A member of the RNA family "Ma3 gene ribosomal frameshift signal" from Puma concolor, 56 nucleotides long.
The base pairs follow the family's consensus structure, which is taken from published work.
[Rfam]
RNA sequence: GGGAAACAGGCUCCGGGCUCUGGCCAUCAGCCCCAGAGCCCAAGCAGCCAGGCUCA
Numbered sequence: 001g002g003g004a005a006a007c008a009g010g011c012u013c014c015g016g017g018c019u020c021u022g023g024c025c026a027u028c029a030g031c032c033c034c035a036g037a038g039c040c041c042a043a044g045c046a047g048c049c050a051g052g053c054u055c056a
Base pairs, nucleotide, nucleotide: 015041016040017039018038019037020036021035022034023033029054030053031052
Source information: The match comes from Rfam's covariance-model search (39 bits). Lineage of the source: Eukaryota > Opisthokonta > Eumetazoa > Laurasiatheria > Puma. The family has 12 seed sequences and 565 matches in Rfam 15.1. The family's RNA type in Rfam is frameshift element.